[Rfam]
RNA sequence: UCCCUAACGCAGUGGCAGUAUCAUAGCCAAUGAGGUGAAACCGAGGCGUGAUUAUUGCUAAUUGUGAUGAAGCUGAAGCUUGAUGAAAGCGGAGGGGCUGUGUUCCCAUUAGGGAAGAGCUGCUGACUUAUUUUUUGUCAGGGGCUUCGCACAUGCUC
Numbered sequence: 001u002c003c004c005u006a007a008c009g010c011a012g013u014g015g016c017a018g019u020a021u022c023a024u025a026g027c028c029a030a031u032g033a034g035g036u037g038a039a040a041c042c043g044a045g046g047c048g049u050g051a052u053u054a055u056u057g058c059u060a061a062u063u064g065u066g067a068u069g070a071a072g073c074u075g076a077a078g079c080u081u082g083a084u085g086a087a088a089g090c091g092g093a094g095g096g097g098c099u100g101u102g103u104u105c106c107c108a109u110u111a112g113g114g115a116a117g118a119g120c121u122g123c124u125g126a127c128u129u130a131u132u133u134u135u136u137g138u139c140a141g142g143g144g145c146u147u148c149g150c151a152c153a154u155g156c157u158c
Base pairs, nucleotide, nucleotide: 020052021051022050023049024048026047027046028045034042035041036040070129071128072127073125075123077121078120079119080118081117142158143157144156145155

Notes: A member of the RNA family "U4 spliceosomal RNA" from Xenopus tropicalis, 158 nucleotides long. The match comes from Rfam's covariance-model search (56 bits). The family's RNA type in Rfam is spliceosomal small nuclear RNA. Rfam links the family to the GO terms U4 snRNP and spliceosomal tri-snRNP complex assembly. About the family: U4 small nuclear RNA (U4 snRNA) is a component of the major U2-dependent spliceosome.